The family of this 578-nucleotide RNA from Galemys pyrenaicus is "c-sis internal ribosome entry site (IRES)". Rfam 15.1 lists 123 matches to the family in 119 species. About the family: This family represents the c-sis 5'-UTR which contains three modules that can individually mediate internal ribosome entry. However, the full length sequence is required for maximal IRES activity. It is thought that the three IRES elements are somehow responsive to cellular changes and act to regulate the level of translation. A search with the family's covariance model found it, with a score of 422 bits.

[Rfam]
RNA sequence: CGGAGCAGCCGCAGCUCGCAGCCCGCAGAGGACGCCCAGAGCCGCGAACCCGCUGCCAGACAAACCGACCGACUCCCGGCGCGUCCACCUGUCCGCCCGGCCCGGCCCAGAGCGCAGCGGGCACGCCGCGCGCGCGGAGUAGCCGUGUCCGCUGUCUGGGUCCUGCCAUCCGGCCCGGGCGGGAGUCUGCACCUCUCCCUGCCCCGGCACUCGGGCGACACUGCAAAGCCAACUUUGGAAAAAGUUUUUUGGGGGAGACUUUGACAUUGAGGCUUCCGGCUCCGCGCUUUCGGACUUCGCGGAUCUUCCGAGAAAAUGUUGCAGAAAAGCUAAGCCGGCGGGCAGAAGAACACGCCUUUAGCCGGCGAGUGAAGACGAACCGUCGCCUGCCGCGUUCUUUUUCCUCUCGGAGGUUGGAGUCCCCUGGGCGCCCCCACACGGCUAGACGCCUCGGCUGGUUCGCGACGCAGCCCCCCGGCCGUGGAUGCUCGCUCGGGCUCGGGAUCCGCCCAGGUAGCGGCCUCGGACCCGGGCCUGCGCCCAGGCCCUCCCCAGCCCCCCAACGACGGAGCCGGGGU
Numbered sequence: 001c002g003g004a005g006c007a008g009c010c011g012c013a014g015c016u017c018g019c020a021g022c023c024c025g026c027a028g029a030g031g032a033c034g035c036c037c038a039g040a041g042c043c044g045c046g047a048a049c050c051c052g053c054u055g056c057c058a059g060a061c062a063a064a065c066c067g068a069c070c071g072a073c074u075c076c077c078g079g080c081g082c083g084u085c086c087a088c089c090u091g092u093c094c095g096c097c098c099g100g101c102c103c104g105g106c107c108c109a110g111a112g113c114g115c116a117g118c119g120g121g122c123a124c125g126c127c128g129c130g131c132g133c134g135c136g137g138a139g140u141a142g143c144c145g146u147g148u149c150c151g152c153u154g155u156c157u158g159g160g161u162c163c164u165g166c167c168a169u170c171c172g173g174c175c176c177g178g179g180c181g182g183g184a185g186u187c188u189g190c191a192c193c194u195c196u197c198c199c200u201g202c203c204c205c206g207g208c209a210c211u212c213g214g215g216c217g218a219c220a221c222u223g224c225a226a227a228g229c230c231a232a233c234u235u236u237g238g239a240a241a242a243a244g245u246u247u248u249u250u251g252g253g254g255g256a257g258a259c260u261u262u263g264a265c266a267u268u269g270a271g272g273c274u275u276c277c278g279g280c281u282c283c284g285c286g287c288u289u290u291c292g293g294a295c296u297u298c299g300c301g302g303a304u305c306u307u308c309c310g311a312g313a314a315a316a317u318g319u320u321g322c323a324g325a326a327a328a329g330c331u332a333a334g335c336c337g338g339c340g341g342g343c344a345g346a347a348g349a350a351c352a353c354g355c356c357u358u359u360a361g362c363c364g365g366c367g368a369g370u371g372a373a374g375a376c377g378a379a380c381c382g383u384c385g386c387c388u389g390c391c392g393c394g395u396u397c398u399u400u401u402u403c404c405u406c407u408c409g410g411a412g413g414u415u416g417g418a419g420u421c422c423c424c425u426g427g428g429c430g431c432c433c434c435c436a437c438a439c440g441g442c443u444a445g446a447c448g449c450c451u452c453g454g455c456u457g458g459u460u461c462g463c464g465a466c467g468c469a470g471c472c473c474c475c476c477g478g479c480c481g482u483g484g485a486u487g488c489u490c491g492c493u494c495g496g497g498c499u500c501g502g503g504a505u506c507c508g509c510c511c512a513g514g515u516a517g518c519g520g521c522c523u524c525g526g527a528c529c530c531g532g533g534c535c536u537g538c539g540c541c542c543a544g545g546c547c548c549u550c551c552c553c554a555g556c557c558c559c560c561c562a563a564c565g566a567c568g569g570a571g572c573c574g575g576g577g578u
Stems, first nucleotide, its partner, number of pairs: 002230002005224004011219001014216005020211002025198001027196005033181005039175001041174004046169001048161002052106002055102001057100001065095001067093003071089001075083001077081001112157001114155002117152009126137004232245005252553006259545003263541001265539001271493003279488002281485006291478001293476001299475001301473002304470001321330002334366006342359001344357002369468003374463001376462007383454003387445002389442004394437002396418003400413005419429004496535003501530003505527004512523004558577004564571001